[Rfam]
RNA sequence: CGCCAGUGUUGAGAGGUGGAGACUUGGGCAAUUGCUGGGCUUCCAGGAGGGCAUUGCACUUGUCUCUGUCUGACAUUACUGGUG
Numbered sequence: 001c002g003c004c005a006g007u008g009u010u011g012a013g014a015g016g017u018g019g020a021g022a023c024u025u026g027g028g029c030a031a032u033u034g035c036u037g038g039g040c041u042u043c044c045a046g047g048a049g050g051g052c053a054u055u056g057c058a059c060u061u062g063u064c065u066c067u068g069u070c071u072g073a074c075a076u077u078a079c080u081g082g083u084g
Stems, first nucleotide, its partner, number of pairs: 001084004006079003014071004019066005028057005034052003037044002

This 84-nucleotide RNA sequence from Callorhinchus milii belongs to the Rfam family "mir-25 microRNA precursor family". The family's consensus secondary structure was predicted with RNAalifold. Gene Ontology terms of the family: miRNA-mediated post-transcriptional gene silencing and RISC complex. A search with the family's covariance model found it, with a score of 70 bits. The family has 3 seed sequences and 311 matches in Rfam 15.1.